Rfam assigns this 61-nucleotide RNA from Pseudomonas sp. M30-35 to the family "gabT RNA".
RNA sequence: UGUAACCGGGGAGGGCGCAGCAGUCGAUCAUCGUAUGCUGCUGCGUUUGACACUGGUUGCG
Numbered sequence: 001u002g003u004a005a006c007c008g009g010g011g012a013g014g015g016c017g018c019a020g021c022a023g024u025c026g027a028u029c030a031u032c033g034u035a036u037g038c039u040g041c042u043g044c045g046u047u048u049g050a051c052a053c054u055g056g057u058u059g060c061g
Stems, first nucleotide, its partner, number of pairs: 001061006013048012025033002
Pairs were carried over by alignment from the consensus structure, which is taken from published work. A search with the family's covariance model found it, with a score of 57 bits.